[Rfam]
RNA sequence: UCGCAUACCCCGGGGAGCCUGUGCUGGCUGAGAGGGGCAGGUCACGCUGCCCGACCCGUCGAACCUGAACCCGUUAGCACGGGCGGAGGGAGGGCCGGACCACACCGC
Numbered sequence: 001u002c003g004c005a006u007a008c009c010c011c012g013g014g015g016a017g018c019c020u021g022u023g024c025u026g027g028c029u030g031a032g033a034g035g036g037g038c039a040g041g042u043c044a045c046g047c048u049g050c051c052c053g054a055c056c057c058g059u060c061g062a063a064c065c066u067g068a069a070c071c072c073g074u075u076a077g078c079a080c081g082g083g084c085g086g087a088g089g090g091a092g093g094g095c096c097g098g099a100c101c102a103c104a105c106c107g108c
Stems, first nucleotide, its partner, number of pairs: 008094003011058004017028003035052005064089003070083004
Shown here is a 108-nucleotide RNA sequence from Novosphingobium hassiacum, a member of the family "TPP riboswitch aptamer (THI element)". It scores 61 bits against the family's covariance model. Pairs were carried over by alignment from the consensus structure, which is taken from published work.